Annotation:
This 197-nucleotide RNA sequence from Halomonas huangheensis belongs to the Rfam family "FMN riboswitch aptamer (RFN element)". The match comes from Rfam's covariance-model search (102 bits). The base pairs follow the family's consensus structure, which is taken from published work. The source organism's lineage runs through Bacteria, Pseudomonadati, Oceanospirillales, Halomonadaceae and Halomonas.

RNA sequence: AAAGGUUCUCAGGGCGGGGUGGAAGUCCCCACCGGCGGUAAUCUCUCACAUCGCGCAUGCUUCCCUGUAUUGGAGCAUGCAUGGAGAGUCAGCCCGCGAGCGCCUUUCCGCCACAGCCACGCCAGCGCGGAGAGGGUCGAGCAGAUUCGGUGAGAUUCCGAAGCCGACGGUUAUAGUCCGGAUGGAAGAGAACGGCA
Numbered sequence: 001a002a003a004g005g006u007u008c009u010c011a012g013g014g015c016g017g018g019g020u021g022g023a024a025g026u027c028c029c030c031a032c033c034g035g036c037g038g039u040a041a042u043c044u045c046u047c048a049c050a051u052c053g054c055g056c057a058u059g060c061u062u063c064c065c066u067g068u069a070u071u072g073g074a075g076c077a078u079g080c081a082u083g084g085a086g087a088g089u090c091a092g093c094c095c096g097c098g099a100g101c102g103c104c105u106u107u108c109c110g111c112c113a114c115a116g117c118c119a120c121g122c123c124a125g126c127g128c129g130g131a132g133a134g135g136g137u138c139g140a141g142c143a144g145a146u147u148c149g150g151u152g153a154g155a156u157u158c159c160g161a162a163g164c165c166g167a168c169g170g171u172u173a174u175a176g177u178c179c180g181g182a183u184g185g186a187a188g189a190g191a192a193c194g195g196c197a
Stems, first nucleotide, its partner, number of pairs: 005193006017029003031177002033166002035097004100142002146162005168180003